RNA sequence: UCUGAAAAGAGCAAACCCAUAGCGAUAUGGGGACGCAAAACCGCGAAUUUCGUAAGAGAUAGUCGGGUUGCCAAAA
Numbered sequence: 001u002c003u004g005a006a007a008a009g010a011g012c013a014a015a016c017c018c019a020u021a022g023c024g025a026u027a028u029g030g031g032g033a034c035g036c037a038a039a040a041c042c043g044c045g046a047a048u049u050u051c052g053u054a055a056g057a058g059a060u061a062g063u064c065g066g067g068u069u070g071c072c073a074a075a076a
Stems, first nucleotide, its partner, number of pairs: 001076001003073002011036002016031006034062001039069004044065003047060003
Dot-bracket structure: (.((......((...((((((....))))))..[))..((((.((((((........))).])))))))..))..)
Rfam assigns this 76-nucleotide sequence from Pelolinea submarina to the family "c-di-GMP-I-GGC riboswitch aptamer". On this family, see Kulshina et al., Nat Struct Mol Biol 2009: "Recognition of the bacterial second messenger cyclic diguanylate by its cognate riboswitch". The family's consensus secondary structure is taken from published work.